RNA sequence: AGGGCUGGUCGCAAGACCCUGGUCCACCAAGCAGCGGGGAUAUACCCC
Numbered sequence: 001a002g003g004g005c006u007g008g009u010c011g012c013a014a015g016a017c018c019c020u021g022g023u024c025c026a027c028c029a030a031g032c033a034g035c036g037g038g039g040a041u042a043u044a045c046c047c048c
Stems, first nucleotide, its partner, number of pairs: 002025005007018004

Rfam assigns this 48-nucleotide RNA sequence to the family "DUF3800-XI RNA". It is annotated as a small RNA. Actinobacteria, Firmicutes, Proteobacteria, Spirochaetes (1 example). It is one of the family's seed sequences.